Rfam assigns this 95-nucleotide RNA sequence from Bartonella henselae to the family "Glycine riboswitch aptamer". Its family is annotated with glycine biosynthetic process in the Gene Ontology. Rfam's curators put it in the seed alignment. NCBI's taxonomy places the organism under Bacteria, Pseudomonadota, Alphaproteobacteria, Bartonellaceae, Bartonella.

RNA sequence: UUUUGCGGGAGAGUGCAGGCUGCAAGUUUUUGGGUCUGCCGCCGAAGGGGAAAAUAGCCCGUAAUCUCUCAGGCUCUAAGGACCGUAAAAGAAGA
Number, nucleotide and partner (000 for none) at each position: 001u090002u089003u088004u087005g086006c085007g084008g083009g000010a000011g000012a000013g000014u000015g039016c038017a037018g036019g035020c034021u033022g000023c000024a000025a000026g000027u000028u000029u000030u000031u000032g000033g021034g020035u019036c018037u017038g016039c015040c000041g074042c073043c072044g070045a069046a000047g000048g068049g067050g066051a000052a000053a000054a062055u061056a000057g000058c000059c000060c000061g055062u054063a000064a000065u000066c050067u049068c048069u045070c044071a000072g043073g042074c041075u000076c000077u000078a000079a000080g000081g000082a000083c008084c007085g006086u005087a004088a003089a002090a001091g000092a000093a000094g000095a000